RNA: Mammalian CPEB3 ribozyme
Organism: Crocodylus porosus
Nucleotides: 080
Base pairs, nucleotide, nucleotide: 013048018047019046020045021044024080025079026078027077028076029075030074032042033041052069053068054067055066057064
Number, partner (000 for none) and nucleotide at each position: 001000a002000g003000a004000g005000g006000u007000u008000g009000c010000a011000u012000g013048g014000u015000c016000a017000a018047g019046g020045c021044c022000g023000u024080a025079g026078c027077g028076g029075a030074a031000a032042c033041g034000c035000u036000c037000a038000u039000g040000c041033u042032g043000c044021g045020g046019c047018c048013c049000u050000g051000u052069c053068a054067g055066a056000g057064u058000u059000c060000a061000a062000c063000c064057a065000a066055u067054c068053u069052g070000c071000g072000a073000a074030u075029u076028c077027u078026g079025c080024u